[Rfam]
RNA sequence: AUAAUGAUACUCCCGCGUAGCUGAGGUUCAGUCCCAAGGCGCGGCCCGGAGGCUAUCGGGGUGGUGAAAAUCCAGUGC
Numbered sequence: 001a002u003a004a005u006g007a008u009a010c011u012c013c014c015g016c017g018u019a020g021c022u023g024a025g026g027u028u029c030a031g032u033c034c035c036a037a038g039g040c041g042c043g044g045c046c047c048g049g050a051g052g053c054u055a056u057c058g059g060g061g062u063g064g065u066g067a068a069a070a071u072c073c074a075g076u077g078c
Stems, first nucleotide, its partner, number of pairs: 012075001013044006045061003049057002062074003
Shown here is a 78-nucleotide RNA sequence, a member of the family "pemK RNA". The sequence is in the family's curated seed alignment.